[Rfam]
RNA: c-di-GMP-I riboswitch aptamer
RNA sequence: GAUUGAAAAUAGCAAAUUUAUCGAAAGGUAAAGACGCAAAGCUACGAGUCUAAAGUCCUGUAGGACAACGAUAGUCGGGUUGCCAAU
Numbered sequence: 001g002a003u004u005g006a007a008a009a010u011a012g013c014a015a016a017u018u019u020a021u022c023g024a025a026a027g028g029u030a031a032a033g034a035c036g037c038a039a040a041g042c043u044a045c046g047a048g049u050c051u052a053a054a055g056u057c058c059u060g061u062a063g064g065a066c067a068a069c070g071a072u073a074g075u076c077g078g079g080u081u082g083c084c085a086a087u
Stems, first nucleotide, its partner, number of pairs: 012037002017032006040081004045077003048072003055066004